[Rfam]
Description:
This 173-nucleotide RNA sequence from Peribacillus saganii belongs to the Rfam family "Group II catalytic intron D1-D4-3". Rfam links the family to the GO term Group II intron splicing. The base pairs follow the family's consensus structure.

RNA sequence: UCCAUGGUGACGUGGAAUCUGAAGGAAGCGGGCGGCAAACCUCCGGUCUGAGGAACACGAACUUCAUAUAAGGCUAGGCAUCAUUGGAUGAGUCUGCAAUACAAGACAAAGUCCGUACUGCCGAAGGUGAUGCAGAGUAAAUGAAGCAGAUAGGUGGAGGGAAAGACUGCAUC
Numbered sequence: 001u002c003c004a005u006g007g008u009g010a011c012g013u014g015g016a017a018u019c020u021g022a023a024g025g026a027a028g029c030g031g032g033c034g035g036c037a038a039a040c041c042u043c044c045g046g047u048c049u050g051a052g053g054a055a056c057a058c059g060a061a062c063u064u065c066a067u068a069u070a071a072g073g074c075u076a077g078g079c080a081u082c083a084u085u086g087g088a089u090g091a092g093u094c095u096g097c098a099a100u101a102c103a104a105g106a107c108a109a110a111g112u113c114c115g116u117a118c119u120g121c122c123g124a125a126g127g128u129g130a131u132g133c134a135g136a137g138u139a140a141a142u143g144a145a146g147c148a149g150a151u152a153g154g155u156g157g158a159g160g161g162a163a164a165g166a167c168u169g170c171a172u173c
Base pairs, nucleotide, nucleotide: 001016002015003014004013005012006011028173031170036165040160041159042158043157044156045155046151047150048149049148050147062146063145064144065143066142067141073138074137075136078133079132080131081130082129083128086114087113088112089111092107093106094105095104